Background: Shown here is a 72-nucleotide RNA sequence from Thamnophis sirtalis, a member of the family "Small nucleolar RNA SNORD101". The literature on the family includes a 2003 paper in Nucleic Acids Res by Vitali et al., "Identification of 13 novel human modification guide RNAs".
RNA sequence: GUUUGAAUGAUGACUUCAUGAAAGUCGGAUACCCCUUCACUCUUUAUGAGUGACAAUGAUAGUCUGACAAAC
Dot-bracket structure: (((((..............................................................)))))